[Rfam]
RNA sequence: AUUAUACAGUUAUUGUACGUCGCUUUGGACAAAAGCGUCUGCUAAAUGACUAAAU
Numbered sequence: 001a002u003u004a005u006a007c008a009g010u011u012a013u014u015g016u017a018c019g020u021c022g023c024u025u026u027g028g029a030c031a032a033a034a035g036c037g038u039c040u041g042c043u044a045a046a047u048g049a050c051u052a053a054a055u
Base pairs, nucleotide, nucleotide: 014044015042016041017040021037022036023035024034025033026032
This 55-nucleotide RNA sequence from Clupea harengus belongs to the Rfam family "UnaL2 LINE 3' element". NCBI's taxonomy places the organism under Eukaryota, Opisthokonta, Eumetazoa, Clupeocephala, Clupea. A search with the family's covariance model found it, with a score of 58 bits. The family's RNA type in Rfam is cis-regulatory element.